A member of the RNA family "ctRNA" from Ensifer meliloti, 45 nucleotides long. The family's RNA type in Rfam is antisense RNA. Rfam's curators put it in the seed alignment. For this family Rfam cites "Two discrete elements are required for the replication of a repABC plasmid: an antisense RNA and a stem-loop structure" (Venkova-Canova et al., Mol Microbiol, 2004). This family represents a group of ctRNAs (or counter-transcribed RNAs) from p42d and related plasmids. ctRNAs are small, highly structured, antisense sequences which are involved in negative regulation. Members of this family are known to bind to the mRNA of repC causing translational repression. This model contains the predicted stem-loop structure followed by a U-rich tract which is proposed to act as a Rho-independent transcriptional terminator.
RNA sequence: AGGAAGGCUUCCACGGCUUGUUCGUUGGGGGCCUUUUUCUUUUGC
Numbered sequence: 001a002g003g004a005a006g007g008c009u010u011c012c013a014c015g016g017c018u019u020g021u022u023c024g025u026u027g028g029g030g031g032c033c034u035u036u037u038u039c040u041u042u043u044g045c
Stems, first nucleotide, its partner, number of pairs: 005034008015026003